RNA sequence: GGGGGCGUUCUGGUUUCGACGGGAUGUUCGACGCGCUGGCUGCACGUGGAGGUUGAUCGGCUGGCCUCCUAAAAAGCCGCUCAAAACAAAUAAUUGCAGACUCUAACGAGCUCGCACUUGCUGCUUAAUUGACAGCAACGCCUGAACCCCGACGCCUAUUGAGGGGGACGGCGACUACUUAAUAGGCUGGCCUCCAAGCCGGGCGACCGGGCGCGGGGGCGAGAUUCAACAGGUCGCUAGGAAAAGGAACGCUGCAGACGGGCCGCUCUUCUCCGAAAAUACCUGAUCGUUUGCUAAACGUGUAGAUGCCUGCGCUGAAGGCGUUUCGGACAGGGGUUCGACUCCCCUCGCCUCCACCA
Number, nucleotide and partner (000 for none) at each position: 001g355002g354003g353004g352005g351006c350007g349008u000009u000010c000011u000012g000013g000014u000015u000016u000017c000018g000019a000020c328021g327022g326023g325024a324025u323026g322027u321028u320029c000030g000031a000032c000033g315034c314035g313036c312037u000038g310039g309040c308041u000042g000043c302044a301045c300046g299047u298048g069049g068050a067051g066052g065053u000054u000055g000056a081057u000058c079059g078060g077061c076062u075063g000064g000065c052066c051067u050068c049069c048070u000071a000072a000073a000074a000075a062076g061077c060078c059079g058080c000081u056082c000083a000084a000085a000086a000087c000088a000089a000090a000091u000092a000093a000094u000095u000096g000097c000098a000099g000100a000101c000102u000103c000104u000105a000106a000107c000108g000109a000110g000111c000112u000113c000114g000115c000116a000117c000118u138119u137120g136121c135122u134123g133124c000125u000126u000127a000128a000129u000130u000131g000132a000133c123134a122135g121136c120137a119138a118139c173140g172141c171142c170143u000144g000145a000146a000147c166148c165149c164150c163151g000152a000153c000154g187155c186156c185157u184158a183159u182160u181161g000162a000163g150164g149165g148166g147167g000168a000169c000170g142171g141172c140173g139174a000175c000176u000177a000178c000179u000180u000181a160182a159183u158184a157185g156186g155187c154188u000189g000190g220191c219192c218193u217194c216195c215196a000197a000198g000199c000200c000201g235202g234203g000204c232205g000206a000207c000208c000209g000210g000211g000212c000213g000214c000215g195216g194217g193218g192219g191220c190221g000222a000223g000224a000225u000226u000227c000228a000229a000230c000231a000232g204233g000234u202235c201236g000237c000238u276239a000240g274241g273242a272243a000244a270245a269246g268247g267248a000249a000250c000251g266252c265253u000254g294255c293256a292257g291258a000259c000260g000261g288262g287263c000264c000265g252266c251267u247268c246269u245270u244271c000272u242273c241274c240275g000276a238277a000278a000279a000280u000281a000282c000283c000284u000285g000286a000287u262288c261289g000290u000291u257292u256293g255294c254295u000296a000297a000298a047299c046300g045301u044302g043303u000304a000305g000306a000307u000308g040309c039310c038311u000312g036313c035314g034315c033316u000317g000318a000319a000320g028321g027322c026323g025324u024325u023326u022327c021328g020329g000330a000331c000332a348333g347334g346335g345336g344337u000338u000339c000340g000341a000342c000343u000344c336345c335346c334347c333348u332349c007350g006351c005352c004353u003354c002355c001356a000357c000358c000359a000
Description:
This 359-nucleotide RNA from Haloferula luteola belongs to the Rfam family "transfer-messenger RNA". Rfam links the family to the GO term RNA catabolic process. It is annotated as a non-coding RNA gene.